[Rfam]
RNA sequence: UUAGAACGGUUAAUUUUAGCCGCUUAGGAGAGUAAUCUUCUAUGAAACAACCCUCAAAUUCGGUGAAACUCUUAUUAAUAAGACAAUACCGAGCCAAGCCUAUUUUAUUGGAAGGUGUAACGACUAGACGGGGGUCAUCCAAAUGGGAUGAAGGUAUAGUCUGAACUCAUAGGCGACUAUGAG
Numbered sequence: 001u002u003a004g005a006a007c008g009g010u011u012a013a014u015u016u017u018a019g020c021c022g023c024u025u026a027g028g029a030g031a032g033u034a035a036u037c038u039u040c041u042a043u044g045a046a047a048c049a050a051c052c053c054u055c056a057a058a059u060u061c062g063g064u065g066a067a068a069c070u071c072u073u074a075u076u077a078a079u080a081a082g083a084c085a086a087u088a089c090c091g092a093g094c095c096a097a098g099c100c101u102a103u104u105u106u107a108u109u110g111g112a113a114g115g116u117g118u119a120a121c122g123a124c125u126a127g128a129c130g131g132g133g134g135u136c137a138u139c140c141a142a143a144u145g146g147g148a149u150g151a152a153g154g155u156a157u158a159g160u161c162u163g164a165a166c167u168c169a170u171a172g173g174c175g176a177c178u179a180u181g182a183g
Stems, first nucleotide, its partner, number of pairs: 005024001007022006028039003050135004055130001060092006070083005093116002100110001120162001122161005138148003168181005
Notes:
Rfam assigns this 183-nucleotide RNA sequence from Anaerosolibacter carboniphilus to the family "Group I catalytic intron". Rfam describes the family as follows. Group I catalytic introns are large self-splicing ribozymes. Pairs were carried over by alignment from the consensus structure, which is taken from published work. Rfam 15.1 lists 5,602 matches to the family in 1,395 species. Gene Ontology term of the family: Group I intron splicing. The organism belongs to Anaerosolibacter, within Bacteria.